[Rfam]
RNA sequence: GAGGGCAUCAAACUGGCUGUGGUUUGUCAUUUGUUUGAAUCAUAUCACAGCCACCUUUGAUGACCCCUG
Numbered sequence: 001g002a003g004g005g006c007a008u009c010a011a012a013c014u015g016g017c018u019g020u021g022g023u024u025u026g027u028c029a030u031u032u033g034u035u036u037g038a039a040u041c042a043u044a045u046c047a048c049a050g051c052c053a054c055c056u057u058u059g060a061u062g063a064c065c066c067c068u069g
Base pairs, nucleotide, nucleotide: 006062007061008060009059010058011057012056014053015052016051017050018049019048020047021046022045025044026043027042
Rfam assigns this 69-nucleotide RNA sequence from Rhipicephalus microplus to the family "mir-2 microRNA precursor family".
Its family is annotated with RISC complex and miRNA-mediated post-transcriptional gene silencing in the Gene Ontology.
A reference for the family is Lee and Ambros (2001), "An extensive class of small RNAs in Caenorhabditis elegans", Science.